RNA: Small nucleolar RNA SNORA9
RNA sequence: CCGCAAGCCUUCCAGCAUGGCUGGGCCUUCCCCGUGGCCCUGCUCAUUCCUGUAGCGCUUGCCAGAGCAAUCCUGGGAUGGUUUGAGGCCUCGCUCUGCUCCUGCUUCGGAUCGAGGUUAUAGAAAUCCCGUACAUUG
Numbered sequence: 001c002c003g004c005a006a007g008c009c010u011u012c013c014a015g016c017a018u019g020g021c022u023g024g025g026c027c028u029u030c031c032c033c034g035u036g037g038c039c040c041u042g043c044u045c046a047u048u049c050c051u052g053u054a055g056c057g058c059u060u061g062c063c064a065g066a067g068c069a070a071u072c073c074u075g076g077g078a079u080g081g082u083u084u085g086a087g088g089c090c091u092c093g094c095u096c097u098g099c100u101c102c103u104g105c106u107u108c109g110g111a112u113c114g115a116g117g118u119u120a121u122a123g124a125a126a127u128c129c130c131g132u133a134c135a136u137u138g
Base pairs, nucleotide, nucleotide: 003062004061005060006059007058008057018046019045020044023040024039025038026037027036074131075130076129077128078127089117090116091115092114093113096110097109098108